[Rfam]
RNA sequence: UUCUUAUCUAGAGAGGUGGAGGGACUGGCCCUUUGAUACCUCGGCAACAGACUUUUUGAAGCACUGUGCCAAUUCCAGUAGCGUUAAGCUUGAAGAUAAGAA
Numbered sequence: 001u002u003c004u005u006a007u008c009u010a011g012a013g014a015g016g017u018g019g020a021g022g023g024a025c026u027g028g029c030c031c032u033u034u035g036a037u038a039c040c041u042c043g044g045c046a047a048c049a050g051a052c053u054u055u056u057u058g059a060a061g062c063a064c065u066g067u068g069c070c071a072a073u074u075c076c077a078g079u080a081g082c083g084u085u086a087a088g089c090u091u092g093a094a095g096a097u098a099a100g101a102a
Stems, first nucleotide, its partner, number of pairs: 001102008013042005021031003025078004043070004048066002050062001053059001074094001080090003
The family of this 102-nucleotide sequence from Oceanobacillus indicireducens is "SAM riboswitch aptamer (S box leader)". The match comes from Rfam's covariance-model search (88 bits). From the family's description: The SAM riboswitch is found upstream of a number of genes which code for proteins involved in methionine or cysteine biosynthesis in Gram-positive bacteria.